A member of the RNA family "Eukaryotic large subunit ribosomal RNA" from Plenodomus tracheiphilus, 533 nucleotides of a longer RNA. A search with the family's covariance model found it, with a score of 1744 bits. Lineage of the source: Eukaryota > saccharomyceta > leotiomyceta > Pleosporineae > Plenodomus tracheiphilus.
RNA sequence: AGCUAGAGUAGUGUAUUGUUACACGGAGGGGGUAUACUGCUCUAUCCUGGUCCAAAGGGGUGACAGGUGAGUAGGAAGGUAUGAGACCUCGCGCGGAAGUUGUCUGGCGAUACGAAGGCGUGGGGCAAGAGUAUUCAGGAAAGACAAUUCAAUCUUAUUGCUAAGAUAACAAGUUCAAUCUGUAUAGGAGAUAAACUAUUUGAGUUGACUACAACGAGCGUAAUAAUGAAACCCUUCCAUCCUUAUAUGUCCGUUGCAGUCUACGCUGCCAUCGCUGCCAUCGAUGCCAUCAGCGCCUAGCGCCUGAUGCCUCUGAUGCCUGUGAUGGUUGCCAUCACUCUAUCCGCUGCCAUCAGCGCCUAGCGCCUGAUGUCUGUUCUUGGCGUGAUGGCGAGUCACGUGGUCACCGGGCGUUCUUUCGCCGACCACGUCACUCCGGCCUUUGGGUCGCAGGAGACGCAGACGGCCUGCUCCUCCACCUUGCGAUUCCGUGUUGUUUGUAACAUGUAUCUAUUAAACUAUAAUAUAAGUAU
Numbered sequence: 001a002g003c004u005a006g007a008g009u010a011g012u013g014u015a016u017u018g019u020u021a022c023a024c025g026g027a028g029g030g031g032g033u034a035u036a037c038u039g040c041u042c043u044a045u046c047c048u049g050g051u052c053c054a055a056a057g058g059g060g061u062g063a064c065a066g067g068u069g070a071g072u073a074g075g076a077a078g079g080u081a082u083g084a085g086a087c088c089u090c091g092c093g094c095g096g097a098a099g100u101u102g103u104c105u106g107g108c109g110a111u112a113c114g115a116a117g118g119c120g121u122g123g124g125g126c127a128a129g130a131g132u133a134u135u136c137a138g139g140a141a142a143g144a145c146a147a148u149u150c151a152a153u154c155u156u157a158u159u160g161c162u163a164a165g166a167u168a169a170c171a172a173g174u175u176c177a178a179u180c181u182g183u184a185u186a187g188g189a190g191a192u193a194a195a196c197u198a199u200u201u202g203a204g205u206u207g208a209c210u211a212c213a214a215c216g217a218g219c220g221u222a223a224u225a226a227u228g229a230a231a232c233c234c235u236u237c238c239a240u241c242c243u244u245a246u247a248u249g250u251c252c253g254u255u256g257c258a259g260u261c262u263a264c265g266c267u268g269c270c271a272u273c274g275c276u277g278c279c280a281u282c283g284a285u286g287c288c289a290u291c292a293g294c295g296c297c298u299a300g301c302g303c304c305u306g307a308u309g310c311c312u313c314u315g316a317u318g319c320c321u322g323u324g325a326u327g328g329u330u331g332c333c334a335u336c337a338c339u340c341u342a343u344c345c346g347c348u349g350c351c352a353u354c355a356g357c358g359c360c361u362a363g364c365g366c367c368u369g370a371u372g373u374c375u376g377u378u379c380u381u382g383g384c385g386u387g388a389u390g391g392c393g394a395g396u397c398a399c400g401u402g403g404u405c406a407c408c409g410g411g412c413g414u415u416c417u418u419u420c421g422c423c424g425a426c427c428a429c430g431u432c433a434c435u436c437c438g439g440c441c442u443u444u445g446g447g448u449c450g451c452a453g454g455a456g457a458c459g460c461a462g463a464c465g466g467c468c469u470g471c472u473c474c475u476c477c478a479c480c481u482u483g484c485g486a487u488u489c490c491g492u493g494u495u496g497u498u499u500g501u502a503a504c505a506u507g508u509a510u511c512u513a514u515u516a517a518a519c520u521a522u523a524a525u526a527u528a529a530g531u532a533u
Stems, first nucleotide, its partner, number of pairs: 001508001509531002512528003